[Rfam]
RNA: Archaeal large subunit ribosomal RNA, nucleotides 550 to 647
RNA sequence: GACAUGGGCAUGAAAGGAUCUUCCGCUCGAAGGAAGCACUCGCGAGGGUGUUGUACGAGAGCGGUUGCCAGUGUCCUGUCGUACGUUUUGAAGAACGG
Numbered sequence: 001g002a003c004a005u006g007g008g009c010a011u012g013a014a015a016g017g018a019u020c021u022u023c024c025g026c027u028c029g030a031a032g033g034a035a036g037c038a039c040u041c042g043c044g045a046g047g048g049u050g051u052u053g054u055a056c057g058a059g060a061g062c063g064g065u066u067g068c069c070a071g072u073g074u075c076c077u078g079u080c081g082u083a084c085g086u087u088u089u090g091a092a093g094a095a096c097g098g
Base pairs, nucleotide, nucleotide: 001080002079003078004077006076007075008074009073010072011071016069017068023064024063025062026061027060028059032056037050038049039048040047041046084097085096086095